[Rfam]
RNA sequence: GGGCAAGCCUCCAGUGUGUGCGGGUCUGAGGUGACUCUGUGCAUCGUCACAGCACUUACCCGAGCAGUUUUGAAAAGGCUGGAGGUCUUGCUCUGCUCUCUCCGAAACAAGGCUAUAGAAAUUUCAGACAAUU
Numbered sequence: 001g002g003g004c005a006a007g008c009c010u011c012c013a014g015u016g017u018g019u020g021c022g023g024g025u026c027u028g029a030g031g032u033g034a035c036u037c038u039g040u041g042c043a044u045c046g047u048c049a050c051a052g053c054a055c056u057u058a059c060c061c062g063a064g065c066a067g068u069u070u071u072g073a074a075a076a077g078g079c080u081g082g083a084g085g086u087c088u089u090g091c092u093c094u095g096c097u098c099u100c101u102c103c104g105a106a107a108c109a110a111g112g113c114u115a116u117a118g119a120a121a122u123u124u125c126a127g128a129c130a131a132u133u
Stems, first nucleotide, its partner, number of pairs: 003059001005057003017043003022037005071126005086112005094104002

Overview: Rfam assigns this 133-nucleotide sequence from Jaculus jaculus to the family "Small nucleolar RNA SNORA9". Rfam links the family to the GO terms RNA processing and nucleolus. A search with the family's covariance model found it, with a score of 95 bits. Its Rfam clan is "SNORA9 clan". The family's consensus secondary structure was predicted with PFOLD. About the family: ACA9 is a member of the H/ACA class of snoRNA that guide the sites of modification of uridines to pseudouridines. The family's RNA type in Rfam is H/ACA-box small nucleolar RNA.